[Rfam]
RNA sequence: UUCUUAUCCAGAGAGGUUGAGGGUCUGGCCCUGUGAUACCUCAGCAACCUUCAGCAUUACUUGUUGAAAAGGUGCUAAGUCCAGCAAGUUGUUAAACUUGGCAGAUGAGAA
Numbered sequence: 001u002u003c004u005u006a007u008c009c010a011g012a013g014a015g016g017u018u019g020a021g022g023g024u025c026u027g028g029c030c031c032u033g034u035g036a037u038a039c040c041u042c043a044g045c046a047a048c049c050u051u052c053a054g055c056a057u058u059a060c061u062u063g064u065u066g067a068a069a070a071g072g073u074g075c076u077a078a079g080u081c082c083a084g085c086a087a088g089u090u091g092u093u094a095a096a097c098u099u100g101g102c103a104g105a106u107g108a109g110a111a
Base pairs, nucleotide, nucleotide: 001111002110003109004108005107006106007105008104013042014041015040016039017038021031022030023029025084026083027082028081043076044075045074046073048072049071050068051067052066053065054064055063080103085100086099087098088097089096090095
RNA: SAM riboswitch aptamer (S box leader)
Organism: Mesobacillus persicus